[Rfam]
This 74-nucleotide RNA sequence from Enterobacteriaceae endosymbiont of Macroplea appendiculata belongs to the Rfam family "tRNA". NCBI's taxonomy places the organism under Bacteria, Pseudomonadota, Gammaproteobacteria, Enterobacterales, Enterobacteriaceae.
RNA sequence: AGCUAUGUAGCUUAAAUGGUUAGAGCACAGCACUCAUAACGCUGAGAUUAUGGGUUCGAGUCCCAUCAUAGCUA
Numbered sequence: 001a002g003c004u005a006u007g008u009a010g011c012u013u014a015a016a017u018g019g020u021u022a023g024a025g026c027a028c029a030g031c032a033c034u035c036a037u038a039a040c041g042c043u044g045a046g047a048u049u050a051u052g053g054g055u056u057c058g059a060g061u062c063c064c065a066u067c068a069u070a071g072c073u074a
Stems, first nucleotide, its partner, number of pairs: 001073007010026004028044004050066005
The family's consensus secondary structure is taken from published work. The family is grouped with related families in Rfam's "tRNA clan".